[Rfam]
RNA sequence: CUAUAGCCCCGAUAGUAGCGGCAUCCUUUUUCUGGCUUCUUUAGACAGAAAAAGAUAGAGCGGAUAGCGGGACGAUGU
Number, nucleotide and partner (000 for none) at each position: 001c000002u000003a000004u000005a000006g000007c000008c000009c070010c069011g068012a000013u066014a065015g000016u000017a000018g061019c060020g000021g000022c000023a056024u055025c054026c000027u000028u000029u051030u050031u049032c048033u047034g046035g000036c044037u000038u000039c000040u000041u000042u000043a000044g036045a000046c034047a033048g032049a031050a030051a029052a000053a000054g025055a024056u023057a000058g000059a000060g019061c018062g000063g000064a000065u014066a013067g000068c011069g010070g009071g000072a000073c000074g000075a000076u000077g000078u000
Rfam assigns this 78-nucleotide RNA sequence from Flavobacterium restrictum to the family "Flavo-1 RNA". The match comes from Rfam's covariance-model search (74 bits). It is annotated as a small RNA. Pairs were carried over by alignment from the consensus structure, which is taken from published work.